The family of this 267-nucleotide sequence from Coniosporium apollinis is "Fungal signal recognition particle RNA".
It is annotated as a non-coding RNA gene.
A search with the family's covariance model found it, with a score of 151 bits.
On this family, see Wild et al., Curr Opin Struct Biol 2002: "Towards the structure of the mammalian signal recognition particle".
Gene Ontology terms of the family: signal recognition particle, plasma membrane targeting, signal recognition particle, endoplasmic reticulum targeting and SRP-dependent cotranslational protein targeting to membrane, signal sequence recognition.
[Rfam]
RNA sequence: CGGCUGUGAUGGUCGUAAAGUAAGAAGGUUCAACGCAUCUGCGACCUCUCCUCCCCUUCAAUUGCGAAGCGAGGGCCCAGUUCGAAUCCGAUGGUGUUCGUUUCCCACUCGCUUAGGUAACUAGCGAUUGCUGGGCGGACCUAAGCAAUGAGAUCUACUGUCGAGGGAAGCAAUUCUGCAGACGCGAUCUCACCACCGGAUGGCGGUGCUGGAUUACCCGCGCUUGGUAACGGGAGGGGGUUUGUGGGAUGUUGGAUCGACUUUUUU
Numbered sequence: 001c002g003g004c005u006g007u008g009a010u011g012g013u014c015g016u017a018a019a020g021u022a023a024g025a026a027g028g029u030u031c032a033a034c035g036c037a038u039c040u041g042c043g044a045c046c047u048c049u050c051c052u053c054c055c056c057u058u059c060a061a062u063u064g065c066g067a068a069g070c071g072a073g074g075g076c077c078c079a080g081u082u083c084g085a086a087u088c089c090g091a092u093g094g095u096g097u098u099c100g101u102u103u104c105c106c107a108c109u110c111g112c113u114u115a116g117g118u119a120a121c122u123a124g125c126g127a128u129u130g131c132u133g134g135g136c137g138g139a140c141c142u143a144a145g146c147a148a149u150g151a152g153a154u155c156u157a158c159u160g161u162c163g164a165g166g167g168a169a170g171c172a173a174u175u176c177u178g179c180a181g182a183c184g185c186g187a188u189c190u191c192a193c194c195a196c197c198g199g200a201u202g203g204c205g206g207u208g209c210u211g212g213a214u215u216a217c218c219c220g221c222g223c224u225u226g227g228u229a230a231c232g233g234g235a236g237g238g239g240g241u242u243u244g245u246g247g248g249a250u251g252u253u254g255g256a257u258c259g260a261c262u263u264u265u266u267u
Stems, first nucleotide, its partner, number of pairs: 001015004018267003022263003027258007036251004040246005046240001050239004055234003063229003067225005073219003077212005082206003086201005092195003096140001098138003102135003106130002109127005115122002141145001149192007159184004167176003